Description: The family of this 86-nucleotide RNA sequence from Hydrogenophaga borbori is "Burkholderia RNA 7 (anti-hemB)". The family's consensus secondary structure is taken from published work. By type it is a small RNA. A reference for the family is Sass et al. (2017), "Identification of small RNAs abundant in Burkholderia cenocepacia biofilms reveal putative regulators with a potential role in carbon and iron metabolism", Sci Rep. This RNA motif was identified by computational search in b-proteobacteria Burkholderia. Co-purified with Hfq, expression confirmed by Northern blot. It scores 60 bits against the family's covariance model. The source organism's lineage runs through Bacteria, Pseudomonadati, Betaproteobacteria, Comamonadaceae and Hydrogenophaga. Rfam links the family to the GO terms protein binding and bacterial biofilm matrix.
[Rfam]
RNA sequence: CCUCCCGCUUUUCCUCCCUGAGCGGGUGCCUUAGUGUGUGACAGCAAAAAGGCUUCCCAACCCGGCCCCUGGCCGGGUUUUUUUUG
Number, nucleotide and partner (000 for none) at each position: 001c000002c000003u000004c026005c025006c024007g023008c022009u021010u000011u000012u000013c000014c000015u000016c000017c000018c000019u000020g000021a009022g008023c007024g006025g005026g004027u000028g053029c052030c051031u050032u049033a000034g000035u000036g000037u000038g000039u000040g000041a000042c000043a000044g000045c000046a000047a000048a000049a032050a031051g030052g029053c028054u000055u000056c000057c000058c000059a079060a078061c077062c076063c075064g074065g073066c072067c000068c000069c000070u000071g000072g066073c065074c064075g063076g062077g061078u060079u059080u000081u000082u000083u000084u000085u000086g000